[Rfam]
RNA sequence: UUGAAGAAUUCGAAGACUUCAACUUGCAGACUUAAAAAAUUUGAAGACUUUAGCUUGCAUACUUAAAAAAUUUGAAGACUUCAACU
Numbered sequence: 001u002u003g004a005a006g007a008a009u010u011c012g013a014a015g016a017c018u019u020c021a022a023c024u025u026g027c028a029g030a031c032u033u034a035a036a037a038a039a040u041u042u043g044a045a046g047a048c049u050u051u052a053g054c055u056u057g058c059a060u061a062c063u064u065a066a067a068a069a070a071u072u073u074g075a076a077g078a079c080u081u082c083a084a085c086u
Stems, first nucleotide, its partner, number of pairs: 001084006009076006018067002021064001025059004032053005
MIR8024 microRNA precursor family: an 86-nucleotide RNA sequence from Solanum commersonii. Gene Ontology terms of the family: RISC complex and miRNA-mediated post-transcriptional gene silencing. Rfam 15.1 lists 661 matches to the family in 8 species. The match comes from Rfam's covariance-model search (85 bits). Pairs were carried over by alignment from the consensus structure, which was predicted with RNAalifold.